[Rfam]
Rfam assigns this 89-nucleotide RNA from Anaerococcus vaginalis to the family "S10-Clostridia ribosomal protein leader". The literature on the family includes a 2020 paper in BMC Microbiol by Eckert and Weinberg, "Discovery of 20 novel ribosomal leader candidates in bacteria and archaea".
RNA sequence: UAAGUGCUAUGAAGUGGGAGGUUGCUUUCACACUAAGCCAGAUGUGGAAGGUAAUUUCCACCAAGCAAGCUAGAGAAAAAUCUCUAGUG
Dot-bracket structure: .............(((.((((...((((((((..........))))))))....))))))).......(((((((......))))))).
The organism belongs to Anaerococcus vaginalis, within Bacteria.